[Rfam]
RNA sequence: AUAGCUCUAACGGGGUGCCGGUCGCUUAUGCGCACGGCUGAGAGGCAAAGGGGAGACCCGGCCAACCCGCUGAACCUGAUCCGGUUGAUACCGGCGGAGGGAUUAGACGUUCUGGCAAC
Numbered sequence: 001a002u003a004g005c006u007c008u009a010a011c012g013g014g015g016u017g018c019c020g021g022u023c024g025c026u027u028a029u030g031c032g033c034a035c036g037g038c039u040g041a042g043a044g045g046c047a048a049a050g051g052g053g054a055g056a057c058c059c060g061g062c063c064a065a066c067c068c069g070c071u072g073a074a075c076c077u078g079a080u081c082c083g084g085u086u087g088a089u090a091c092c093g094g095c096g097g098a099g100g101g102a103u104u105a106g107a108c109g110u111u112c113u114g115g116c117a118a119c
Stems, first nucleotide, its partner, number of pairs: 006107005011069004017038004045062002075100003081094004
RNA: TPP riboswitch aptamer (THI element)
Organism: Oryzicola mucosus